[Rfam]
RNA sequence: GCCCCCGUAGCUCAGGGGAGAGAGCACCGGCCUCCGGAGCCGGGUGCGCAGGUUCGAAUCCUGCCGGGGGCG
Number, nucleotide and partner (000 for none) at each position: 001g071002c070003c069004c068005c067006c066007g065008u000009a000010g025011c024012u023013c022014a000015g000016g000017g000018g000019a000020g000021a000022g013023a012024g011025c010026a000027c043028c042029g041030g040031c039032c000033u000034c000035c000036g000037g000038a000039g031040c030041c029042g028043g027044g000045u000046g000047c000048g064049c063050a062051g061052g060053u000054u000055c000056g000057a000058a000059u000060c052061c051062u050063g049064c048065c007066g006067g005068g004069g003070g002071c001072g000

This 72-nucleotide RNA from a Streptosporangiales bacterium belongs to the Rfam family "tRNA". The family's consensus secondary structure is taken from published work. The family's RNA type in Rfam is transfer RNA. A search with the family's covariance model found it, with a score of 67 bits.